tRNA: a 104-nucleotide RNA from Pleurotus eryngii. It scores 54 bits against the family's covariance model. The base pairs follow the family's consensus structure, which is taken from published work. For this family Rfam cites "The tertiary structure of tRNA and the development of the genetic code" (Hou, Trends Biochem Sci, 1993). Its Rfam clan is "tRNA clan".
RNA sequence: GCUUCUGUGGCUCAGUUGGCUAGAGCGUUGGUCUCAUACGUAGGUAUGAUCACAGUCCUCUGUGAGCAAUCCAAAGGUCGCAAGUUCGAGCCUUGCCAGGAGCA
Number, nucleotide and partner (000 for none) at each position: 001g103002c102003u101004u100005c099006u098007g097008u000009g000010g026011c025012u024013c023014a000015g000016u000017u000018g000019g000020c000021u000022a000023g013024a012025g011026c010027g000028u074029u073030g072031g071032u000033c000034u000035c000036a000037u000038a000039c000040g000041u000042a000043g000044g000045u000046a000047u000048g000049a000050u000051c000052a000053c000054a000055g000056u000057c000058c000059u000060c000061u000062g000063u000064g000065a000066g000067c000068a000069a000070u000071c031072c030073a029074a028075a000076g000077g000078u000079c000080g096081c095082a094083a093084g092085u000086u000087c000088g000089a000090g000091c000092c084093u083094u082095g081096c080097c007098a006099g005100g004101a003102g002103c001104a000